[Rfam]
The family of this 30-nucleotide RNA sequence from uncultured marine bacterium HF4000_APKG2098 is "ffh sRNA". The sequence is in the family's curated seed alignment. The base pairs follow the family's consensus structure, which is taken from published work. By type it is a small RNA. The literature on the family includes a 2009 paper in BMC Genomics by Meyer et al., "Identification of candidate structured RNAs in the marine organism 'Candidatus Pelagibacter ubique'".

RNA sequence: CACUAGUCAGCGAGGGUUCGCCCACUAGUG
Numbered sequence: 001c002a003c004u005a006g007u008c009a010g011c012g013a014g015g016g017u018u019c020g021c022c023c024a025c026u027a028g029u030g
Base pairs, nucleotide, nucleotide: 001030002029003028004027005026006025007024010021011020012019013018